[Rfam]
RNA: Bacterial large signal recognition particle RNA
RNA sequence: CCGUGCUAGAUGGGGAGGUAGCGGUGCCCUGUAACCCGCAAGCCGCUAUAGCGGGAUUGAAUUCCCACCCGAGGGUUUGGUUUGUGGGGACCGGCCGGUGUAAGCGGCGAAGAGGGCUGGGUCCCGCGCAACGGGAACUCAUGAACCCCGUCAGGUCCGGAAGGAAGCAGCGGUAAGUGAACCUUUCCGUGUGCCGCGGGGGAGCCUGGCCGGAGCCGGCUGCACCGGUAACGCCCGGAAGCCACUAUUCAGAGGUGGGUGCGCGG
Number, nucleotide and partner (000 for none) at each position: 001c266002c265003g264004u263005g262006c261007u000008a000009g058010a057011u056012g030013g029014g028015g027016a000017g025018g000019u023020a000021g000022c000023g019024g000025u017026g000027c015028c014029c013030u012031g000032u000033a000034a000035c055036c054037c053038g052039c051040a000041a000042g000043c000044c000045g000046c000047u000048a000049u000050a000051g039052c038053g037054g036055g035056a011057u010058u009059g000060a000061a000062u000063u000064c259065c258066c257067a256068c255069c254070c000071g000072a000073g250074g249075g248076u247077u000078u000079g243080g242081u241082u240083u239084g000085u237086g236087g235088g234089g000090a000091c000092c233093g232094g000095c000096c227097g226098g225099u224100g223101u222102a000103a000104g220105c219106g217107g216108c215109g000110a000111a000112g000113a000114g000115g211116g210117c209118u208119g207120g206121g205122u204123c200124c199125c198126g197127c196128g195129c191130a190131a000132c189133g188134g187135g186136a185137a000138c000139u180140c179141a178142u177143g000144a000145a000146c000147c000148c173149c172150g171151u170152c000153a000154g000155g000156u165157c164158c163159g000160g000161a000162a000163g158164g157165a156166a000167g000168c000169a000170g151171c150172g149173g148174u000175a000176a000177g142178u141179g140180a139181a000182c000183c000184u000185u136186u135187c134188c133189g132190u130191g129192u000193g000194c000195c128196g127197c126198g125199g124200g123201g000202g000203a000204g122205c121206c120207u119208g118209g117210c116211c115212g000213g000214a000215g108216c107217c106218g000219g105220c104221u000222g101223c100224a099225c098226c097227g096228g000229u000230a000231a000232c093233g092234c088235c087236c086237g085238g000239a083240a082241g081242c080243c079244a000245c000246u000247a076248u075249u074250c073251a000252g000253a000254g069255g068256u067257g066258g065259g064260u000261g006262c005263g004264c003265g002266g001